The family of this 74-nucleotide RNA from Medicago truncatula is "MIR5272 microRNA precursor family". Gene Ontology terms of the family: RISC complex and miRNA-mediated post-transcriptional gene silencing. The source organism's lineage runs through Eukaryota, Viridiplantae, Streptophyta, Gunneridae and Medicago. It scores 72 bits against the family's covariance model.
RNA sequence: UUAAAUGUGAAUUGAUUUAUGAUUGAUUACGCUUACUUAAAAGUGAUUCUUAUAAAUUGAUGAUGUUUGGAUAG
Numbered sequence: 001u002u003a004a005a006u007g008u009g010a011a012u013u014g015a016u017u018u019a020u021g022a023u024u025g026a027u028u029a030c031g032c033u034u035a036c037u038u039a040a041a042a043g044u045g046a047u048u049c050u051u052a053u054a055a056a057u058u059g060a061u062g063a064u065g066u067u068u069g070g071a072u073a074g
Base pairs, nucleotide, nucleotide: 011061012060013059014058015057016056017055018054021053025049026048028046030045031044032043033042034041